Overview:
This 156-nucleotide sequence from Populus alba belongs to the Rfam family "MIR2912 microRNA precursor family". A search with the family's covariance model found it, with a score of 114 bits. Lineage of the source: Eukaryota > Streptophyta > Gunneridae > Malpighiales > Populus. The base pairs follow the family's consensus structure, which was predicted with RNAalifold.

RNA sequence: UCUAAAACUUGAGAUGUGGGUUAAACACUGAACCGUGUCUGGGCUACAGAACAGAUUCAGACUUCUUCGUUAUUGCUACAAUUUGGACUUGAAAACAGCUUUUUUAAAUCUUGGACUCUUUAUGAAAGUUUUAGGCCUAUGUCUUAGCUUUCCAUC
Number, nucleotide and partner (000 for none) at each position: 001u000002c000003u154004a000005a000006a151007a150008c147009u146010u000011g145012a144013g143014a142015u141016g140017u139018g138019g137020g136021u134022u133023a132024a131025a130026c000027a129028c128029u127030g000031a000032a000033c000034c000035g123036u122037g121038u000039c000040u000041g119042g118043g117044c000045u115046a000047c000048a112049g111050a000051a109052c000053a000054g105055a104056u000057u000058c000059a100060g099061a000062c098063u097064u000065c000066u000067u000068c000069g000070u000071u000072a000073u087074u086075g000076c000077u000078a000079c000080a000081a000082u000083u000084u000085g000086g074087a073088c000089u000090u000091g000092a000093a000094a000095a000096c000097a063098g062099c060100u059101u000102u000103u000104u055105u054106a000107a000108a000109u051110c000111u049112u048113g000114g000115a045116c000117u043118c042119u041120u000121u037122a036123u035124g000125a000126a000127a029128g028129u027130u025131u024132u023133a022134g021135g000136c020137c019138u018139a017140u016141g015142u014143c013144u012145u011146a009147g008148c000149u000150u007151u006152c000153c000154a003155u000156c000